RNA: c-di-GMP-I riboswitch aptamer
RNA sequence: CUAAGAUAAUGGCAAACUUAUUGAAAAGUAAGGACGCAAAGCUACGGGUCUAAAGCUAAUAAUUAGCAAUGAUCGCCGGGUUACCUAA
Numbered sequence: 001c002u003a004a005g006a007u008a009a010u011g012g013c014a015a016a017c018u019u020a021u022u023g024a025a026a027a028g029u030a031a032g033g034a035c036g037c038a039a040a041g042c043u044a045c046g047g048g049u050c051u052a053a054a055g056c057u058a059a060u061a062a063u064u065a066g067c068a069a070u071g072a073u074c075g076c077c078g079g080g081u082u083a084c085c086u087a088a
Stems, first nucleotide, its partner, number of pairs: 012037002017032006040082004045078003048073003055067004